RNA: MarS sRNA
RNA sequence: AUGCGAUGAGCCGAAUGUGGCUGUAGCCACUUUCACGCUAGGGAGGUCAAAACGCAGGAGCGGACCUUGAUAAGUUGUGUGAACCUGCUUAUCACACGAAAGUGCCCUUAGACUAGGAGAAAUCUUAGUCUUUUUU
Numbered sequence: 001a002u003g004c005g006a007u008g009a010g011c012c013g014a015a016u017g018u019g020g021c022u023g024u025a026g027c028c029a030c031u032u033u034c035a036c037g038c039u040a041g042g043g044a045g046g047u048c049a050a051a052a053c054g055c056a057g058g059a060g061c062g063g064a065c066c067u068u069g070a071u072a073a074g075u076u077g078u079g080u081g082a083a084c085c086u087g088c089u090u091a092u093c094a095c096a097c098g099a100a101a102g103u104g105c106c107c108u109u110a111g112a113c114u115a116g117g118a119g120a121a122a123u124c125u126u127a128g129u130c131u132u133u134u135u136u
Base pairs, nucleotide, nucleotide: 013034014033015032017030018029019028020027021026040108041107042106043105044067045066046065047064053062054061055060068094069093070092071091072090073089074088075087095104096103097102110131111130112129113128114127115126116125117124118123